This 98-nucleotide sequence from Dactylellina haptotyla belongs to the Rfam family "A. fumigatus snoRNA Afu_263". Rfam classes the family as a C/D-box small nucleolar RNA. A search with the family's covariance model found it, with a score of 61 bits. Clan: SNORD77 clan. NCBI's taxonomy places the organism under Eukaryota, Fungi, Orbiliomycetes, Orbiliales, Dactylellina haptotyla. A reference for the family is Jochl et al. (2008), "Small ncRNA transcriptome analysis from Aspergillus fumigatus suggests a novel mechanism for regulation of protein synthesis", Nucleic Acids Res. Its family is annotated with nucleolus and RNA processing in the Gene Ontology.
[Rfam]
RNA sequence: UUUCGUGAUGAUACAAAAAUUUUCAAAGCAUAGUUCACCUGAGGACUCUGUGUCCGAUGAACGAAGCAAAAUUAUCCAUCUUUCGCUCCUAUCUGAUA
Numbered sequence: 001u002u003u004c005g006u007g008a009u010g011a012u013a014c015a016a017a018a019a020u021u022u023u024c025a026a027a028g029c030a031u032a033g034u035u036c037a038c039c040u041g042a043g044g045a046c047u048c049u050g051u052g053u054c055c056g057a058u059g060a061a062c063g064a065a066g067c068a069a070a071a072u073u074a075u076c077c078a079u080c081u082u083u084c085g086c087u088c089c090u091a092u093c094u095g096a097u098a
Base pairs, nucleotide, nucleotide: 006018009015010014033062034061035060036059037058043055044054045053046052